Rfam assigns this 48-nucleotide RNA sequence from Ectothiorhodospiraceae bacterium 2226 to the family "Guanidine-II riboswitch aptamer (mini-ykkC)".
The organism belongs to Ectothiorhodospiraceae, within Bacteria.

RNA sequence: CCUCGAGGACGACCUCGAGCGGAAUGCCAAGCAGGCGGGACGCCCCGC
Numbered sequence: 001c002c003u004c005g006a007g008g009a010c011g012a013c014c015u016c017g018a019g020c021g022g023a024a025u026g027c028c029a030a031g032c033a034g035g036c037g038g039g040a041c042g043c044c045c046c047g048c
Base pairs, nucleotide, nucleotide: 002019003018004017005016006015007014008013035048036047037046038045039044